Small nucleolar RNA R64/Z200 family: a 97-nucleotide sequence from Salvia splendens. Rfam 15.1 lists 748 matches to the family in 228 species. A reference for the family is Galardi et al. (2002), "Purified box C/D snoRNPs are able to reproduce site-specific 2'-O-methylation of target RNA in vitro", Mol Cell Biol. The family's consensus secondary structure was predicted with PFOLD.
[Rfam]
RNA sequence: AAGCUGCGGUGAUGAAUUAUGAAAUAAAUUCACAUGUCAGACUUCAGAGGUUAUUUAUAAUCUAUGAGAAGACUAUUUCAUUAUUCCUGAGCACUAU
Numbered sequence: 001a002a003g004c005u006g007c008g009g010u011g012a013u014g015a016a017u018u019a020u021g022a023a024a025u026a027a028a029u030u031c032a033c034a035u036g037u038c039a040g041a042c043u044u045c046a047g048a049g050g051u052u053a054u055u056u057a058u059a060a061u062c063u064a065u066g067a068g069a070a071g072a073c074u075a076u077u078u079c080a081u082u083a084u085u086c087c088u089g090a091g092c093a094c095u096a097u
Stems, first nucleotide, its partner, number of pairs: 001097001003095001005093003049062004